[Rfam]
RNA sequence: AGAGGCCCUCUGUGGCUGGGGUGGAACGCUUGCCUCGUUACCACAGCAACAAAGCAAGCAUUCUGCCAGGCCGCUCACACUGCCCAC
Numbered sequence: 001a002g003a004g005g006c007c008c009u010c011u012g013u014g015g016c017u018g019g020g021g022u023g024g025a026a027c028g029c030u031u032g033c034c035u036c037g038u039u040a041c042c043a044c045a046g047c048a049a050c051a052a053a054g055c056a057a058g059c060a061u062u063c064u065g066c067c068a069g070g071c072c073g074c075u076c077a078c079a080c081u082g083c084c085c086a087c
Stems, first nucleotide, its partner, number of pairs: 004084003012074006020067007028059006037050003041046001